[Rfam]
RNA sequence: UAACUAUAUUACCGACUUCGGUCGGCUCUAAUCAGCGUAGCUGCAUUAUCGUGGCUGCAUAUUAAAAAGUCAUUGUGCACUUAGCUUGA
Numbered sequence: 001u002a003a004c005u006a007u008a009u010u011a012c013c014g015a016c017u018u019c020g021g022u023c024g025g026c027u028c029u030a031a032u033c034a035g036c037g038u039a040g041c042u043g044c045a046u047u048a049u050c051g052u053g054g055c056u057g058c059a060u061a062u063u064a065a066a067a068a069g070u071c072a073u074u075g076u077g078c079a080c081u082u083a084g085c086u087u088g089a
Base pairs, nucleotide, nucleotide: 012025013024014023015022016021037058038057039056040055041054042053043052044051
uxuA RNA: an 89-nucleotide sequence from Photobacterium sp. SKA34. Taxonomically the source falls in Photobacterium (Bacteria, Pseudomonadati, Gammaproteobacteria, Vibrionaceae). It is annotated as a small RNA.